[Rfam]
RNA: U5 spliceosomal RNA
Nucleotides: 121
Stems, first nucleotide, its partner, number of pairs: 004080003009071003013067007031057008100120005
Number, partner (000 for none) and nucleotide at each position: 001000u002000a003000u004080c005079u006078c007000u008000g009071g010070u011069u012000c013067g014066u015065c016064u017063g018062c019061a020000u021000u022000u023000g024000a025000c026000u027000g028000a029000g030000a031057a032056a033055a034054u035053c036052u037051u038050u039000c040000c041000c042000c043000u044000u045000u046000u047000a048000c049000u050038a051037a052036a053035g054034a055033u056032u057031u058000c059000c060000g061019u062018g063017u064016a065015g066014a067013c068000a069011a070010a071009c072000a073000a074000u075000u076000a077000u078006g079005a080004g081000u082000a083000u084000u085000a086000a087000c088000g089000a090000a091000u092000u093000u094000c095000u096000g097000g098000a099000g100120g101119u102118c103117u104116c105000u106000u107000u108000g109000a110000a111000a112000a113000a114000g115000c116104g117103g118102g119101a120100c121000a